[Rfam]
RNA sequence: AAAAAAGCAGGGCCCUUUUGCCUUUAGUGUGGUCUGCUCUCGAAAGUUUCAAGAAAAUUACUUGCAUUAUUAUUGGGUGAACCUCUGUGGUUGUUAGUGACUGAAGGCAGUAAAUGAUGCCAGAUGC
Numbered sequence: 001a002a003a004a005a006a007g008c009a010g011g012g013c014c015c016u017u018u019u020g021c022c023u024u025u026a027g028u029g030u031g032g033u034c035u036g037c038u039c040u041c042g043a044a045a046g047u048u049u050c051a052a053g054a055a056a057a058u059u060a061c062u063u064g065c066a067u068u069a070u071u072a073u074u075g076g077g078u079g080a081a082c083c084u085c086u087g088u089g090g091u092u093g094u095u096a097g098u099g100a101c102u103g104a105a106g107g108c109a110g111u112a113a114a115u116g117a118u119g120c121c122a123g124a125u126g127c
Stems, first nucleotide, its partner, number of pairs: 005049003011038002014032002017029001065119007078109002082107003

A member of the RNA family "Small nucleolar RNA snoR74" from Carpinus fangiana, 127 nucleotides long.
The base pairs follow the family's consensus structure, which was predicted with WAR.
Rfam links the family to the GO terms nucleolus and RNA processing.
It scores 60 bits against the family's covariance model.
For this family Rfam cites "Experimental RNomics: identification of 140 candidates for small non-messenger RNAs in the plant Arabidopsis thaliana" (Marker et al., Curr Biol, 2002).
Rfam classes the family as an H/ACA-box small nucleolar RNA.